[Rfam]
RNA sequence: AAUCUCUUUGGGAAUGAAGUUCUCCCUUAGUUAUAAACUAAAACCGCUUUUAUAAGCUGAUGACUUCUGUGUUUUU
Dot-bracket structure: .........[[[[..((((((.]]]]...................((((....))))....)))))).........

Record summary
Rfam assigns this 76-nucleotide RNA from Eubacterium sp. AF22-8LB to the family "Fluoride riboswitch aptamer (crcB RNA motif)". The source organism's lineage runs through Bacteria, Bacillota, Eubacteriales, Eubacteriaceae and Eubacterium. It scores 48 bits against the family's covariance model.